A member of the RNA family "mir-278 microRNA precursor family" from Apis mellifera, 75 nucleotides long. The family's consensus secondary structure was predicted with RNAalifold. The source organism's lineage runs through Eukaryota, Protostomia, Ecdysozoa, Pterygota and Apis. Rfam's curators put it in the seed alignment.
RNA sequence: AGUGUGUCCGGAUGAGGUCUUCAUCGACCGUGAUUUAAUUUCAUAAGGUCGGUGGGACUUUCGUCCGUUUGCAAG
Numbered sequence: 001a002g003u004g005u006g007u008c009c010g011g012a013u014g015a016g017g018u019c020u021u022c023a024u025c026g027a028c029c030g031u032g033a034u035u036u037a038a039u040u041u042c043a044u045a046a047g048g049u050c051g052g053u054g055g056g057a058c059u060u061u062c063g064u065c066c067g068u069u070u071g072c073a074a075g
Base pairs, nucleotide, nucleotide: 003073004072005071006070009067010066011065012064013063014062015061016059017058018057019056020055022054023053025051026050027049028048029047